The family of this 57-nucleotide RNA is "RAGATH-30 RNA".
[Rfam]
RNA sequence: GUAAAAAUAAGAAAUUAUCGAAUUGAUUUGCUCAGGCAAAAUCUGCUGGUGCAGAAA
Numbered sequence: 001g002u003a004a005a006a007a008u009a010a011g012a013a014a015u016u017a018u019c020g021a022a023u024u025g026a027u028u029u030g031c032u033c034a035g036g037c038a039a040a041a042u043c044u045g046c047u048g049g050u051g052c053a054g055a056a057a
Base pairs, nucleotide, nucleotide: 027040028039029038030037031036042055043054044053045052046051

It is one of the family's seed sequences.